[Rfam]
RNA sequence: UGCCAUUGCUAAGUCAAGGCUUCUUCCCGUGCAUAUUUUCUUGCCACCUAUCUAUGGAAGUAUUUGGUCUGUUACAGCUUUGGUAGAUUGAUUCUUGCCCGCCGCCCUGGUUUCUUUCUGAAAUUGGGGUUGACAAGCGAUCGUUUUGAAAGCUCUGUCGUAUAGGGCUUGCUGUGUCUUGUUUUGAGUUGAGUUCUGCUUCCACUUCAUUUUGUGGCAUCAUAGCAGUUCUCUUAGUAACAUCUCACACAUUC
Numbered sequence: 001u002g003c004c005a006u007u008g009c010u011a012a013g014u015c016a017a018g019g020c021u022u023c024u025u026c027c028c029g030u031g032c033a034u035a036u037u038u039u040c041u042u043g044c045c046a047c048c049u050a051u052c053u054a055u056g057g058a059a060g061u062a063u064u065u066g067g068u069c070u071g072u073u074a075c076a077g078c079u080u081u082g083g084u085a086g087a088u089u090g091a092u093u094c095u096u097g098c099c100c101g102c103c104g105c106c107c108u109g110g111u112u113u114c115u116u117u118c119u120g121a122a123a124u125u126g127g128g129g130u131u132g133a134c135a136a137g138c139g140a141u142c143g144u145u146u147u148g149a150a151a152g153c154u155c156u157g158u159c160g161u162a163u164a165g166g167g168c169u170u171g172c173u174g175u176g177u178c179u180u181g182u183u184u185u186g187a188g189u190u191g192a193g194u195u196c197u198g199c200u201u202c203c204a205c206u207u208c209a210u211u212u213u214g215u216g217g218c219a220u221c222a223u224a225g226c227a228g229u230u231c232u233c234u235u236a237g238u239a240a241c242a243u244c245u246c247a248c249a250c251a252u253u254c
Stems, first nucleotide, its partner, number of pairs: 003083003017070005023060005031044003095171001097168004103132002105129010137153002141149003174248003180242003191233003197227004202217004
Dot-bracket structure: ..(((...........(((((.(((((...(((........)))...........))))).....)))))..........)))...........(.((((..((((((((((((.....)))))))))).))....((..(((...)))..))...........))))..)..(((...(((........(((...((((.((((........))))......))))...)))......)))...)))......
Shown here is a 254-nucleotide sequence from [Emmonsia] crescens, a member of the family "Small nucleolar RNA snR191". Rfam links the family to the GO terms RNA processing and nucleolus. The base pairs follow the family's consensus structure, which was predicted with WAR.